[Rfam]
RNA sequence: CGCGUUUUGAAGAUGAAACUAUUACGGAUGUAAAUGAGCUAUGGCUCGACCUGUCCGAGAGCGCAUAACAAUCGUGUGGAUGCUUCCGUUGCCUUCCUUCUGAACUUGCCA
Numbered sequence: 001c002g003c004g005u006u007u008u009g010a011a012g013a014u015g016a017a018a019c020u021a022u023u024a025c026g027g028a029u030g031u032a033a034a035u036g037a038g039c040u041a042u043g044g045c046u047c048g049a050c051c052u053g054u055c056c057g058a059g060a061g062c063g064c065a066u067a068a069c070a071a072u073c074g075u076g077u078g079g080a081u082g083c084u085u086c087c088g089u090u091g092c093c094u095u096c097c098u099u100c101u102g103a104a105c106u107u108g109c110c111a
Stems, first nucleotide, its partner, number of pairs: 004109002025088004
The record is a 111-nucleotide sequence from Trametes coccinea, which matches "Small nucleolar RNA Z13/snr52" in Rfam. Its family is annotated with nucleolus and RNA processing in the Gene Ontology. The family has 42 seed sequences and 1,203 matches in Rfam 15.1.